The record is a 108-nucleotide sequence from Carex littledalei, which matches "Small nucleolar RNA Z157/R69/R10" in Rfam. Taxonomically the source falls in Carex subgen. Euthyceras (Eukaryota, Magnoliopsida, commelinids, Cyperoideae). The literature on the family includes a 2003 paper in Nucleic Acids Res by Chen et al., "The high diversity of snoRNAs in plants: identification and comparative study of 120 snoRNA genes from Oryza sativa".

[Rfam]
RNA sequence: AGAGGAGUGGUGAGGAUGAAAUGGUUUUGGACUAGAGUUUCUGAUAAUUGGGUAAUACCUUACCUUACCCAAUUGUUGAAGAUAACCCUUGGCUGUCUGAGCUCCUCU
Numbered sequence: 001a002g003a004g005g006a007g008u009g010g011u012g013a014g015g016a017u018g019a020a021a022u023g024g025u026u027u028u029g030g031a032c033u034a035g036a037g038u039u040u041c042u043g044a045u046a047a048u049u050g051g052g053u054a055a056u057a058c059c060u061u062a063c064c065u066u067a068c069c070c071a072a073u074u075g076u077u078g079a080a081g082a083u084a085a086c087c088c089u090u091g092g093c094u095g096u097c098u099g100a101g102c103u104c105c106u107c108u
Stems, first nucleotide, its partner, number of pairs: 001108008038081004046074010

The match comes from Rfam's covariance-model search (71 bits). Rfam 15.1 lists 836 matches to the family in 232 species.